Background
The record is an 84-nucleotide RNA sequence from Nannospalax galili, which matches "Small nucleolar RNA SNORD79" in Rfam. For this family Rfam cites "Purified box C/D snoRNPs are able to reproduce site-specific 2'-O-methylation of target RNA in vitro" (Galardi et al., Mol Cell Biol, 2002). The match comes from Rfam's covariance-model search (77 bits). Its Rfam clan is "SNORD74 clan". Rfam describes the family as follows. snoRNA U79 or Z22 is found in intron 7 of the gas5 gene in humans and is also present in mice. Taxonomically the source falls in Nannospalax (Eukaryota, Chordata, Dipnotetrapodomorpha, Theria).
[Rfam]
RNA sequence: AAUUGUUAGUGAUGACAUAAAAGUUAAAACAGAUGGGAAUCUCUCUGAAGGAGAUUGAAGAGUAAUUCUUAAACUGAAACAGCA
Numbered sequence: 001a002a003u004u005g006u007u008a009g010u011g012a013u014g015a016c017a018u019a020a021a022a023g024u025u026a027a028a029a030c031a032g033a034u035g036g037g038a039a040u041c042u043c044u045c046u047g048a049a050g051g052a053g054a055u056u057g058a059a060g061a062g063u064a065a066u067u068c069u070u071a072a073a074c075u076g077a078a079a080c081a082g083c084a
Stems, first nucleotide, its partner, number of pairs: 003082005